The record is an 83-nucleotide RNA sequence from Metabacillus sediminilitoris, which matches "c-di-GMP-I riboswitch aptamer" in Rfam.
Lineage of the source: Bacteria > Bacillati > Bacillota > Bacillaceae > Metabacillus.
From the family's description: GEMM was predicted in a large-scale screen for bacterial structured RNA regulatory elements.
Rfam links the family to the GO term cyclic-di-GMP binding.
The family's consensus secondary structure is taken from published work.
[Rfam]
RNA sequence: AAACUACAAAGGCAAAAUCACUGAAAAGCGAUGACGCAAAGCUAUAGGGGCUCCUUUCUUAGAAAAGCCAGCCAGCUACCAUC
Numbered sequence: 001a002a003a004c005u006a007c008a009a010a011g012g013c014a015a016a017a018u019c020a021c022u023g024a025a026a027a028g029c030g031a032u033g034a035c036g037c038a039a040a041g042c043u044a045u046a047g048g049g050g051c052u053c054c055u056u057u058c059u060u061a062g063a064a065a066a067g068c069c070a071g072c073c074a075g076c077u078a079c080c081a082u083c
Stems, first nucleotide, its partner, number of pairs: 012037002017032003021028002040077004047073002049069003056063002